[Rfam]
Description: A member of the RNA family "Glutamine-II riboswitch aptamer", 59 nucleotides long.

Nucleotides: 059
Stems, first nucleotide, its partner, number of pairs: 004050005010026005037058006
Number, partner (000 for none) and nucleotide at each position: 001000g002000u003000c004050c005049g006048u007047u008046c009000a010026u011025c012024c013023c014022u015000u016000u017000c018000a019000a020000u021000c022014a023013g024012g025011g026010a027000c028000g029000c030000a031000u032000g033000a034000c035000a036000c037058c038057c039056a040055a041054g042053c043000a044000u045000g046008g047007a048006a049005c050004g051000g052000g053042g054041c055040u056039u057038g058037g059000u
The base pairs follow the family's consensus structure, which is taken from published work.